[Rfam]
RNA: TD-2 RNA
Organism: Treponema phagedenis
RNA sequence: ACCGCCAUGGACGGCGGUGGUUCCACACAGAAAUGAGUUUAAAAACUACCACACUUCUAUAAUAGGAGUUUUUAAACUCAUGGUUUGGUUUUUGCCAUGGACGGCAAAAACCAAACCGGA
Numbered sequence: 001a002c003c004g005c006c007a008u009g010g011a012c013g014g015c016g017g018u019g020g021u022u023c024c025a026c027a028c029a030g031a032a033a034u035g036a037g038u039u040u041a042a043a044a045a046c047u048a049c050c051a052c053a054c055u056u057c058u059a060u061a062a063u064a065g066g067a068g069u070u071u072u073u074a075a076a077c078u079c080a081u082g083g084u085u086u087g088g089u090u091u092u093u094g095c096c097a098u099g100g101a102c103g104g105c106a107a108a109a110a111c112c113a114a115a116c117c118g119g120a
Base pairs, nucleotide, nucleotide: 001018002017003016004015005014006013034080035079036078037077038076039075040074041073042072043071044070045069046068047067083116084115085114086113087112088111089110090109091108092107093106094105095104096103